[Rfam]
RNA sequence: UGGACAGUAUAAGUGAUUAACUGUACCACAGGAUUCGUUAUUGUUUAAUUUUACACCACAAAGCCUAUAUCCUAAGGAAUGGGACUGAGAU
Dot-bracket structure: ((((((((.((......))))))).))).................................(((((((.(((...)))))))).)).....
RNA: pan motif
Organism: Aminipila butyrica